Rfam assigns this 81-nucleotide RNA from Menidia menidia to the family "mir-26 microRNA precursor family". A reference for the family is Lagos-Quintana et al. (2001), "Identification of novel genes coding for small expressed RNAs", Science.

[Rfam]
RNA sequence: CUGCAACCUCGUUCAAGUAAUCCAGGAUAGGCUUUCUGCAGCUGCUCUGGCCUAUACUUGAUUACUUGCACUUGGUGGCAG
Numbered sequence: 001c002u003g004c005a006a007c008c009u010c011g012u013u014c015a016a017g018u019a020a021u022c023c024a025g026g027a028u029a030g031g032c033u034u035u036c037u038g039c040a041g042c043u044g045c046u047c048u049g050g051c052c053u054a055u056a057c058u059u060g061a062u063u064a065c066u067u068g069c070a071c072u073u074g075g076u077g078g079c080a081g
Base pairs, nucleotide, nucleotide: 002080003079004078007075008074011071012070014068015067016066017065018064019063020062021061022060024058025057027055028054029053030052031051032050033049